[Rfam]
RNA sequence: CCGCGGGGACGGCCCCGUGCAGGACCGGAGCAUGGCAAGGACGGCCUUG
Numbered sequence: 001c002c003g004c005g006g007g008g009a010c011g012g013c014c015c016c017g018u019g020c021a022g023g024a025c026c027g028g029a030g031c032a033u034g035g036c037a038a039g040g041a042c043g044g045c046c047u048u049g
Stems, first nucleotide, its partner, number of pairs: 002019007036049005
The record is a 49-nucleotide RNA from Massilia cavernae, which matches "Guanidine-II riboswitch aptamer (mini-ykkC)" in Rfam.
The match comes from Rfam's covariance-model search (32 bits).
The family's consensus secondary structure is taken from published work.
Rfam's curators write: Simpler in structure and has fewer highly conserved nucleotide positions than the ykkC-yxkD leader. Despite this each of its two stem-loop structures directly bind free guanidine.